[Rfam]
RNA sequence: UAAGGCCAGUGGAGAAGUGGUCUCUACACUUUGAUUUGAAAUAGUGAGAUUCAACUCCUCCAACUUGCCUUU
Numbered sequence: 001u002a003a004g005g006c007c008a009g010u011g012g013a014g015a016a017g018u019g020g021u022c023u024c025u026a027c028a029c030u031u032u033g034a035u036u037u038g039a040a041a042u043a044g045u046g047a048g049a050u051u052c053a054a055c056u057c058c059u060c061c062a063a064c065u066u067g068c069c070u071u072u
Stems, first nucleotide, its partner, number of pairs: 008065002010062005017056001018054001023049002027046004

A member of the RNA family "mir-1175 microRNA precursor family" from Brassicogethes aeneus, 72 nucleotides long. Rfam links the family to the GO terms miRNA-mediated post-transcriptional gene silencing and RISC complex. The source organism's lineage runs through Eukaryota, Opisthokonta, Polyphaga, Nitidulidae and Brassicogethes. The base pairs follow the family's consensus structure, which was predicted with RNAalifold.